The family of this 65-nucleotide RNA is "pemK RNA". Pairs were carried over by alignment from the consensus structure, which is taken from published work.
Nucleotides: 065
Base pairs, nucleotide, nucleotide: 012062013024025048026047027046029044030043031042049061050060051059
Number, partner (000 for none) and nucleotide at each position: 001000a002000u003000a004000a005000u006000g007000a008000u009000a010000c011000u012062u013024c014000a015000a016000u017000a018000g019000u020000u021000u022000a023000a024013g025048c026047c027046g028000g029044c030043u031042c032000g033000u034000c035000u036000u037000a038000a039000u040000a041000g042031g043030g044029g045000g046027c047026g048025g049061u050060g051059g052000u053000g054000a055000g056000a057000u058000u059051c060050c061049a062012a063000u064000g065000u